[Rfam]
RNA sequence: ACGUUAUCAAGAAAGGUUGAGGGAUUAGACCCUGUGAAACCUUGGCAACCCUCCCCUGGAGAAGGUGCUACAUUCUACCGCACGCAUUGUGCAGAUAGAUAACAA
Numbered sequence: 001a002c003g004u005u006a007u008c009a010a011g012a013a014a015g016g017u018u019g020a021g022g023g024a025u026u027a028g029a030c031c032c033u034g035u036g037a038a039a040c041c042u043u044g045g046c047a048a049c050c051c052u053c054c055c056c057u058g059g060a061g062a063a064g065g066u067g068c069u070a071c072a073u074u075c076u077a078c079c080g081c082a083c084g085c086a087u088u089g090u091g092c093a094g095a096u097a098g099a100u101a102a103c104a105a
Stems, first nucleotide, its partner, number of pairs: 003103006013043005021032003026077004044069004049065002051061004073097001078094001080092004
Dot-bracket structure: ..((((((....(((((...(((..[[[[)))......)))))((((.((((((...))))..))))))...(]]]](.((((.....)))).)..)))))))..
SAM riboswitch aptamer (S box leader): a 105-nucleotide RNA from Gillisia limnaea. Pairs were carried over by alignment from the consensus structure, which is taken from published work. Its Rfam clan is "SAM clan". Lineage of the source: Bacteria > Flavobacteriia > Flavobacteriaceae > Gillisia > Gillisia limnaea.